[Rfam]
RNA sequence: GGGAAACGGGAAGGGGGCUGGGGCUCUGAGCCACCCCAAGCCCUAGGAAGUACAGGCUCA
Numbered sequence: 001g002g003g004a005a006a007c008g009g010g011a012a013g014g015g016g017g018c019u020g021g022g023g024c025u026c027u028g029a030g031c032c033a034c035c036c037c038a039a040g041c042c043c044u045a046g047g048a049a050g051u052a053c054a055g056g057c058u059c060a
Stems, first nucleotide, its partner, number of pairs: 014044006021037003028059005